The record is a 98-nucleotide RNA from Lactococcus garvieae, which matches "Purine riboswitch aptamer" in Rfam. Riboswitches are metabolite binding domains within certain messenger RNAs that serve as precision sensors for their corresponding targets. Allosteric rearrangement of mRNA structure is mediated by ligand binding, and this results in modulation of gene expression. The base pairs follow the family's consensus structure, which is taken from published work. Its family is annotated with purine nucleobase biosynthetic process in the Gene Ontology. Taxonomically the source falls in Lactococcus garvieae (Bacteria, Bacillati, Bacilli, Lactobacillales).

[Rfam]
RNA sequence: CUGUAUCAAUAUUAAAAAUCUUAUUUAUGCUUAGGAUAUGGCUAAGUGUUUCUACCCUGCACCGUAAAGGCAGGACAAUAAGAGGAUUCUAUUUGUGC
Numbered sequence: 001c002u003g004u005a006u007c008a009a010u011a012u013u014a015a016a017a018a019u020c021u022u023a024u025u026u027a028u029g030c031u032u033a034g035g036a037u038a039u040g041g042c043u044a045a046g047u048g049u050u051u052c053u054a055c056c057c058u059g060c061a062c063c064g065u066a067a068a069g070g071c072a073g074g075a076c077a078a079u080a081a082g083a084g085g086a087u088u089c090u091a092u093u094u095g096u097g098c
Base pairs, nucleotide, nucleotide: 019083020082021081022080023079024078025077029047030046031045032044033043034042056074057073058072059071060070
Overview: A search with the family's covariance model found it, with a score of 68 bits.